[Rfam]
The record is a 132-nucleotide RNA sequence from Tupaia belangeri, which matches "Small nucleolar RNA SNORA42/SNORA80 family" in Rfam. The family's RNA type in Rfam is H/ACA-box small nucleolar RNA. Rfam's curators write: The members of this family belong to the H/ACA class of snoRNAs that guide the sites of modification of uridines to pseudouridines. Human ACA42 (SNORA42) was cloned from HeLa cells by immunoprecipitation with anti-GAR1 antibody. The base pairs follow the family's consensus structure, which was predicted with RNAalifold. NCBI's taxonomy places the organism under Eukaryota, Metazoa, Deuterostomia, Boreoeutheria, Tupaia belangeri. On this family, see Schattner et al., RNA 2006: "A computational screen for mammalian pseudouridylation guide H/ACA RNAs". Its family is annotated with RNA processing and nucleolus in the Gene Ontology.
RNA sequence: GCAUGGGUUUGGAUUUAUGGCAGGCUUGUCCCCCUGGGCCUCUCAGAGUAUCCCAUGGCAGAGCAAGCUGGCCCUGAGCCAUUGCCCGGCUUCUACCUGUGGGCUGCUGGCACUGAACUGGGUUGCACAGUG
Dot-bracket structure: .(((((((......((.(((.(((((.........)).))).))).)).)))).)))...........((((((.....((...((((((((........))))))..))...))....)))))).......
Numbered sequence: 001g002c003a004u005g006g007g008u009u010u011g012g013a014u015u016u017a018u019g020g021c022a023g024g025c026u027u028g029u030c031c032c033c034c035u036g037g038g039c040c041u042c043u044c045a046g047a048g049u050a051u052c053c054c055a056u057g058g059c060a061g062a063g064c065a066a067g068c069u070g071g072c073c074c075u076g077a078g079c080c081a082u083u084g085c086c087c088g089g090c091u092u093c094u095a096c097c098u099g100u101g102g103g104c105u106g107c108u109g110g111c112a113c114u115g116a117a118c119u120g121g122g123u124u125g126c127a128c129a130g131u132g
Stems, first nucleotide, its partner, number of pairs: 002057003005053004015048002018045003022041003025037002069125006080115002085110002087106006